[Rfam]
RNA sequence: GGCGAUAAAGUGUGGUGUGCAAUAGGCACAGCGGACCCGGGGGCAGUACCCGGCGGCUCCACCACCAAGGGCGAUUUUCGCGCCGUUGAUGAUGGGGUCGAACUAGGAUCGACGUGUGUUGAAAAGCACCAUUUUCGCCCGGGAUGAGAUCCCCCGUAAAACGCUCACAACACACAAGUGCCAACGAUAACGAAGCACUCGCUCUCGCUGCGUAA
Numbered sequence: 001g002g003c004g005a006u007a008a009a010g011u012g013u014g015g016u017g018u019g020c021a022a023u024a025g026g027c028a029c030a031g032c033g034g035a036c037c038c039g040g041g042g043g044c045a046g047u048a049c050c051c052g053g054c055g056g057c058u059c060c061a062c063c064a065c066c067a068a069g070g071g072c073g074a075u076u077u078u079c080g081c082g083c084c085g086u087u088g089a090u091g092a093u094g095g096g097g098u099c100g101a102a103c104u105a106g107g108a109u110c111g112a113c114g115u116g117u118g119u120u121g122a123a124a125a126g127c128a129c130c131a132u133u134u135u136c137g138c139c140c141g142g143g144a145u146g147a148g149a150u151c152c153c154c155c156g157u158a159a160a161a162c163g164c165u166c167a168c169a170a171c172a173c174a175c176a177a178g179u180g181c182c183a184a185c186g187a188u189a190a191c192g193a194a195g196c197a198c199u200c201g202c203u204c205u206c207g208c209u210g211c212g213u214a215a
Stems, first nucleotide, its partner, number of pairs: 001139005015129004027118003031115003037053005054100007140156004

The family of this 215-nucleotide sequence from Paraurantiacibacter namhicola is "permuted transfer-messenger RNA".
Pairs were carried over by alignment from the consensus structure, which is taken from published work.
The match comes from Rfam's covariance-model search (138 bits).
Bacterial tmRNA, also known as 10Sa RNA or SsrA, is named for its dual tRNA and mRNA-like properties. Its role is to liberate the mRNA from a stalled ribosome. To accomplish this part of the tmRNA is used as a reading frame that ends in a translation stop signal. The broken mRNA is replaced in the ribosome by the tmRNA and translation of the tmRNA leads to addition of a proteolysis tag to the incomplete protein enabling recognition by a protease.